[Rfam]
RNA sequence: UAAAUAAUGCAAUAUCCGUAAAAUCUGAAAAUCAUUGUGUUAAAUCUAACGUGGUAUAAUUAUUUUAGGAUUAAACUCAAUUAAAUCCCAUGUAAUGAGGAAGACAAGAUAAAUUAUCUUAUAAAAAAAGCCGAUAAUAAUAUCGGCUUUUUUUAUAAGU
Number, nucleotide and partner (000 for none) at each position: 001u000002a000003a000004a000005u000006a000007a000008u000009g000010c000011a000012a000013u000014a000015u104016c103017c000018g000019u100020a000021a000022a000023a000024u070025c069026u068027g000028a066029a065030a064031a063032u062033c000034a060035u000036u000037g000038u000039g000040u000041u056042a055043a000044a000045u000046c051047u000048a000049a000050c000051g046052u000053g000054g000055u042056a041057u000058a000059a000060u034061u000062a032063u031064u030065u029066u028067a000068g026069g025070a024071u000072u000073a000074a000075a000076c000077u000078c000079a000080a000081u000082u000083a000084a000085a000086u000087c000088c000089c000090a000091u000092g000093u000094a000095a000096u000097g000098a000099g000100g019101a000102a000103g016104a015105c000106a000107a000108g000109a000110u000111a000112a000113a000114u000115u000116a000117u000118c000119u000120u000121a000122u000123a000124a000125a000126a000127a000128a149129a148130g147131c146132c145133g144134a143135u142136a141137a000138u000139a000140a000141u136142a135143u134144c133145g132146g131147c130148u129149u128150u000151u000152u000153u000154u000155a000156u000157a000158a000159g000160u000
RNA: Enterobacterial sRNA STnc430
Organism: Citrobacter freundii